The family of this 210-nucleotide RNA from Panicum virgatum is "Plant small nucleolar RNA U3". It is annotated as a C/D-box small nucleolar RNA. Gene Ontology terms of the family: RNA processing and nucleolus. Small nucleolar RNAs (snoRNAs) are involved in the processing and modification of rRNA in the nucleolus. There are two main classes of snoRNAs: the box C/D class, and the box H/ACA class. U3 snoRNA is a member of the box C/D class. Indeed, the box C/D element is a subset of the six short sequence elements found in all U3 snoRNAs, namely boxes A, A', B, C, C', and D. The U3 snoRNA secondary structure is characterised by a small 5' domain (with boxes A and A'), and a larger 3' domain (with boxes B, C, C', and D), the two domains being linked by a single-stranded hinge. Rfam 15.1 lists 3,759 matches to the family in 258 species. A search with the family's covariance model found it, with a score of 146 bits. Lineage of the source: Eukaryota > Streptophyta > Petrosaviidae > Poaceae > Panicum sect. Hiantes. Its Rfam clan is "U3 clan".

RNA sequence: ACGACCUUGCUUGUACAGGAUCUUUCCUAUAGGAUCGUACCGCUGCAUCCUUCACUGUUAAGGAGGCAAACACUCAAGCCUGGUUGAUGACACCAUGACCUGUGGGCCAGAGCGUGAUUUUAUCGGCUGCUCCAUCCGCGGCUGUAGAGGAUCGUUCCUAGUCAGGUUAGCUUUGGCUGGGGGUGGCUCUCAGGUUGUGUCUGACAGGCU
Numbered sequence: 001a002c003g004a005c006c007u008u009g010c011u012u013g014u015a016c017a018g019g020a021u022c023u024u025u026c027c028u029a030u031a032g033g034a035u036c037g038u039a040c041c042g043c044u045g046c047a048u049c050c051u052u053c054a055c056u057g058u059u060a061a062g063g064a065g066g067c068a069a070a071c072a073c074u075c076a077a078g079c080c081u082g083g084u085u086g087a088u089g090a091c092a093c094c095a096u097g098a099c100c101u102g103u104g105g106g107c108c109a110g111a112g113c114g115u116g117a118u119u120u121u122a123u124c125g126g127c128u129g130c131u132c133c134a135u136c137c138g139c140g141g142c143u144g145u146a147g148a149g150g151a152u153c154g155u156u157c158c159u160a161g162u163c164a165g166g167u168u169a170g171c172u173u174u175g176g177c178u179g180g181g182g183g184u185g186g187c188u189c190u191c192a193g194g195u196u197g198u199g200u201c202u203g204a205c206a207g208g209c210u
Base pairs, nucleotide, nucleotide: 001038002037003035005033006032007031013027015025017023018022044068045067046066048064049063050062051061052060078209079208080207081206082205098195099194100193101192102191104189105188106187107186108185109184111156112155113154114153124144125143126142127141128140129139130138157181158180159179160178161177162176163175164174165173166172
Dot-bracket structure: (((.(((.....(.(.((...)).).)...))).).)).....(((.(((((.......))))).))).........(((((...............(((((.((((((.((((.........(((((((.......)))))))........))))((((((((((.....))))))))))..)))))).))))).........))))).